[Rfam]
This 71-nucleotide RNA from Chloebia gouldiae belongs to the Rfam family "Small nucleolar RNA SNORD99". The family's consensus secondary structure was predicted with RNAalifold. Its family is annotated with nucleolus and RNA processing in the Gene Ontology. On this family, see Galardi et al., Mol Cell Biol 2002: "Purified box C/D snoRNPs are able to reproduce site-specific 2'-O-methylation of target RNA in vitro". Clan: SNORD58 clan. The family's RNA type in Rfam is C/D-box small nucleolar RNA.
RNA sequence: CCUGGUCCAUGAUGUUUCCUCAGUGUGGAGACUGUUGGAUGAGUCCUGCGGAUAUGGGGCUGAGGCCAGAC
Numbered sequence: 001c002c003u004g005g006u007c008c009a010u011g012a013u014g015u016u017u018c019c020u021c022a023g024u025g026u027g028g029a030g031a032c033u034g035u036u037g038g039a040u041g042a043g044u045c046c047u048g049c050g051g052a053u054a055u056g057g058g059g060c061u062g063a064g065g066c067c068a069g070a071c
Stems, first nucleotide, its partner, number of pairs: 002069004